[Rfam]
About this RNA:
The family of this 88-nucleotide RNA sequence from filamentous cyanobacterium CCP2 is "Fluoride riboswitch aptamer (crcB RNA motif)". The source organism's lineage runs through Bacteria, Bacillati and Cyanobacteriota. It scores 49 bits against the family's covariance model.
Nucleotides: 088
Base pairs, nucleotide, nucleotide: 010025011024012023013022016079017078018077019076020075021074032069033068034067
Number, partner (000 for none) and nucleotide at each position: 001000a002000u003000u004000g005000a006000a007000g008000c009000g010025g011024g012023u013022g014000a015000u016079g017078g018077a019076g020075c021074u022013c023012a024011c025010c026000c027000u028000a029000a030000c031000c032069g033068c034067c035000c036000a037000a038000a039000a040000u041000a042000u043000c044000u045000a046000g047000c048000a049000a050000a051000u052000u053000g054000a055000c056000u057000a058000g059000u060000u061000u062000a063000u064000g065000a066000c067034g068033g069032c070000u071000g072000a073000u074021g075020g076019c077018u078017c079016c080000u081000a082000c083000u084000g085000u086000u087000c088000u